[Rfam]
RNA: TPP riboswitch aptamer (THI element)
Organism: Mycobacterium sp. ITM-2016-00318
RNA sequence: GAACACCCACGCGGGAGCGCGCACCGAGCGCGCUGAGAGGACGGCUCGAGUGCGUCACGGUGCCGUCGACCGUAUGAACCUGACCGGGUAAUGCCGGCGUAGGGAGAUGUCAUGAGUUUCCU
Numbered sequence: 001g002a003a004c005a006c007c008c009a010c011g012c013g014g015g016a017g018c019g020c021g022c023a024c025c026g027a028g029c030g031c032g033c034u035g036a037g038a039g040g041a042c043g044g045c046u047c048g049a050g051u052g053c054g055u056c057a058c059g060g061u062g063c064c065g066u067c068g069a070c071c072g073u074a075u076g077a078a079c080c081u082g083a084c085c086g087g088g089u090a091a092u093g094c095c096g097g098c099g100u101a102g103g104g105a106g107a108u109g110u111c112a113u114g115a116g117u118u119u120c121c122u
Base pairs, nucleotide, nucleotide: 007109010106011073012072013071014070017033018032019031020030021029040067041066042065043064044063079103080102081101082100084097085096086095087094